[Rfam]
RNA sequence: AUAUGCCUGGCUCCCUGUAUGCCAUUUGAGGAACUCAUCGAGAUGCACGAUAGGUCUCUUUGAAUGGCGUAUGAGGAGCCAAGCAUGU
Numbered sequence: 001a002u003a004u005g006c007c008u009g010g011c012u013c014c015c016u017g018u019a020u021g022c023c024a025u026u027u028g029a030g031g032a033a034c035u036c037a038u039c040g041a042g043a044u045g046c047a048c049g050a051u052a053g054g055u056c057u058c059u060u061u062g063a064a065u066g067g068c069g070u071a072u073g074a075g076g077a078g079c080c081a082a083g084c085a086u087g088u
Base pairs, nucleotide, nucleotide: 001088002087003086004085005084006083008081009080010079011078012077013076014075016073017072018071019070020069021068022067023066024065027062028061029060